Shown here is a 75-nucleotide RNA sequence from Neogobius melanostomus, a member of the family "mir-980 microRNA precursor family". Taxonomically the source falls in Neogobius (Eukaryota, Teleostomi, Eurypterygia, Benthophilinae). Pairs were carried over by alignment from the consensus structure, which was predicted with RNAalifold.

Nucleotides: 075
Stems, first nucleotide, its partner, number of pairs: 004072012017059004023053002028048005
Number, partner (000 for none) and nucleotide at each position: 001000u002000u003000c004072g005071g006070u007069c008068c009067u010066g011065a012064g013063a014062c015061c016000u017059u018058c019057a020056u021000c022000a023053g024052g025000c026000a027000a028048a029047u030046u031045g032044c033000u034000c035000u036000u037000u038000u039000u040000u041000u042000u043000u044032g045031c046030a047029a048028u049000u050000u051000g052024c053023c054000u055000g056020a057019u058018g059017a060000a061015g062014g063013u064012c065011u066010c067009a068008g069007g070006a071005c072004c073000g074000a075000a